This 126-nucleotide RNA sequence from Pelotomaculum isophthalicicum belongs to the Rfam family "Molybdenum/Tungsten riboswitch aptamer (Moco RNA motif)". It scores 58 bits against the family's covariance model. Lineage of the source: Bacteria > Eubacteriales > Desulfotomaculaceae > Pelotomaculum > Pelotomaculum isophthalicicum.

RNA sequence: UAAACAUAAUAAAUCUGAGUCCCCAUUGCCUGUUGCCUAUGGUUAAAGCUAUGGCGGGUGGACCGAUGGGUGUAUCGGGAAACCGGUGCGCCUCCCAUUGCGGAAAGGAUUUAACUUACUUACAAU
Numbered sequence: 001u002a003a004a005c006a007u008a009a010u011a012a013a014u015c016u017g018a019g020u021c022c023c024c025a026u027u028g029c030c031u032g033u034u035g036c037c038u039a040u041g042g043u044u045a046a047a048g049c050u051a052u053g054g055c056g057g058g059u060g061g062a063c064c065g066a067u068g069g070g071u072g073u074a075u076c077g078g079g080a081a082a083c084c085g086g087u088g089c090g091c092c093u094c095c096c097a098u099u100g101c102g103g104a105a106a107g108g109a110u111u112u113a114a115c116u117u118a119c120u121u122a123c124a125a126u
Base pairs, nucleotide, nucleotide: 003120006117011112012111013110014109015108016107019063020062021061022060024058026057027056028055029054030053035049036048068093069092070091071090072089073088074087075086076085077084078083094103095102